[Rfam]
RNA sequence: GGUCCGAUGCCACGUCGACGGUAGCAAAAUGCGAUGACCGACGAUGCUAUGAUUGGACCGAUAAACGAGUUUUAAUUAACGUUUCGCAUUUUUGAUAGGAAUCUGUGCAUGAAUUUUCAAUUUCUUCACGGAGCCGUUUCGUGCGAUUACAUUU
Number, nucleotide and partner (000 for none) at each position: 001g000002g058003u057004c056005c055006g054007a053008u052009g050010c000011c000012a000013c046014g045015u044016c043017g042018a000019c000020g039021g038022u037023a000024g032025c031026a030027a000028a000029a000030u026031g025032c024033g000034a000035u000036g000037a022038c021039c020040g000041a000042c017043g016044a015045u014046g013047c000048u000049a000050u009051g000052a008053u007054u006055g005056g004057a003058c002059c000060g000061a000062u000063a000064a000065a000066c000067g000068a000069g000070u000071u000072u000073u000074a000075a000076u000077u000078a000079a000080c000081g000082u000083u000084u146085c145086g144087c143088a142089u000090u000091u000092u000093u000094g000095a000096u000097a000098g135099g134100a000101a000102u000103c131104u130105g129106u000107g127108c000109a125110u000111g124112a000113a000114u000115u000116u000117u000118c000119a000120a000121u000122u000123u000124c111125u109126u000127c107128a000129c105130g104131g103132a000133g000134c099135c098136g000137u000138u000139u000140c000141g000142u088143g087144c086145g085146a084147u000148u000149a000150c000151a000152u000153u000154u000